RNA sequence: GACACCUCCAAGUGUGCAGGGCACUGAUGGGGGCCAGGGCAGGCUCAGUGGAAGUGCAGGACCUGGCACUCAGUGGGAGGUGGG
Dot-bracket structure: ..(((.(((.(((((.(((((((((..((.(((((......)))))..))..)))))....))))))))).....))).)))..
Numbered sequence: 001g002a003c004a005c006c007u008c009c010a011a012g013u014g015u016g017c018a019g020g021g022c023a024c025u026g027a028u029g030g031g032g033g034c035c036a037g038g039g040c041a042g043g044c045u046c047a048g049u050g051g052a053a054g055u056g057c058a059g060g061a062c063c064u065g066g067c068a069c070u071c072a073g074u075g076g077g078a079g080g081u082g083g084g
Stems, first nucleotide, its partner, number of pairs: 003082003007078003011070005017065004021057005028050002031046005